[Rfam]
RNA sequence: UAAUAAGCGUAGGAACAGGCGGCCGGCAUUGUCGGCGCAGCUGGGCAGCGCAAGCAGCAGGUUAAACCUGCGGGACCUAU
Numbered sequence: 001u002a003a004u005a006a007g008c009g010u011a012g013g014a015a016c017a018g019g020c021g022g023c024c025g026g027c028a029u030u031g032u033c034g035g036c037g038c039a040g041c042u043g044g045g046c047a048g049c050g051c052a053a054g055c056a057g058c059a060g061g062u063u064a065a066a067c068c069u070g071c072g073g074g075a076c077c078u079a080u
Stems, first nucleotide, its partner, number of pairs: 010079004016074001018042003022036006045055002057071006